[Rfam]
RNA: t44 RNA
Organism: Cocleimonas flava
RNA sequence: GCCUUUUUAUUUCAAAUUCACACACAUAUCACCAAGAUAUAGCAGGGUGCUUGUGGCUUAAAUGUUUAAGUCUUCAGGUUGUUAUAUUGGAUAUGUGGAGGCCUAAC
Dot-bracket structure: ......................((((((((.....(((((((((....(((((.....................)))))))))))))).))))))))..........
Numbered sequence: 001g002c003c004u005u006u007u008u009a010u011u012u013c014a015a016a017u018u019c020a021c022a023c024a025c026a027u028a029u030c031a032c033c034a035a036g037a038u039a040u041a042g043c044a045g046g047g048u049g050c051u052u053g054u055g056g057c058u059u060a061a062a063u064g065u066u067u068a069a070g071u072c073u074u075c076a077g078g079u080u081g082u083u084a085u086a087u088u089g090g091a092u093a094u095g096u097g098g099a100g101g102c103c104u105a106a107c
Stems, first nucleotide, its partner, number of pairs: 023097008036088009049079005